[Rfam]
RNA sequence: CUUGCAGAGUUUAUUGGCAUUCUGUCCACCUCCCAUAUCAACAGAUCAACUAUGUGAUCUUGUUAUUAUUAAUGGAGGUGGGCAUCCUGUCAAUCUAGCUCUGUUGG
Numbered sequence: 001c002u003u004g005c006a007g008a009g010u011u012u013a014u015u016g017g018c019a020u021u022c023u024g025u026c027c028a029c030c031u032c033c034c035a036u037a038u039c040a041a042c043a044g045a046u047c048a049a050c051u052a053u054g055u056g057a058u059c060u061u062g063u064u065a066u067u068a069u070u071a072a073u074g075g076a077g078g079u080g081g082g083c084a085u086c087c088u089g090u091c092a093a094u095c096u097a098g099c100u101c102u103g104u105u106g107g
Stems, first nucleotide, its partner, number of pairs: 011097001014093006023084011
A member of the RNA family "MIR394 microRNA precursor family" from Kingdonia uniflora, 107 nucleotides long. A reference for the family is Jones-Rhoades and Bartel (2004), "Computational identification of plant microRNAs and their targets, including a stress-induced miRNA", Mol Cell. NCBI's taxonomy places the organism under Eukaryota, Mesangiospermae, Ranunculales, Circaeasteraceae, Kingdonia. Rfam links the family to the GO terms RISC complex and miRNA-mediated post-transcriptional gene silencing. Pairs were carried over by alignment from the consensus structure, which was predicted with WAR.